[Rfam]
RNA sequence: GACCUACCCUUCAAUCUUCCUGAUUGUGGCAAGGUCGAAAAUUCCCUUCGCAGACACUGAACCCCGCGUUCAGCAGCUCUGCGAAGGGUCAUGUCUCGAAAGGGACAUGGGAGAGGCCGCAAGGUUUCUCU
Number, nucleotide and partner (000 for none) at each position: 001g036002a035003c034004c033005u000006a000007c000008c000009c029010u028011u000012c026013a025014a024015u023016c000017u000018u000019c000020c000021u000022g000023a015024u014025u013026g012027u000028g010029g009030c000031a000032a000033g004034g003035u002036c001037g000038a000039a000040a000041a000042u000043u000044c088045c087046c086047u085048u084049c083050g082051c081052a080053g079054a078055c000056a000057c073058u072059g071060a070061a069062c068063c000064c000065c000066g000067c000068g062069u061070u060071c059072a058073g057074c000075a000076g000077c000078u054079c053080u052081g051082c050083g049084a048085a047086g046087g045088g044089u000090c109091a108092u107093g106094u105095c104096u103097c102098g000099a000100a000101a000102g097103g096104g095105a094106c093107a092108u091109g090110g131111g130112a129113g128114a127115g126116g125117c124118c123119g000120c000121a000122a000123g118124g117125u116126u115127u114128c113129u112130c111131u110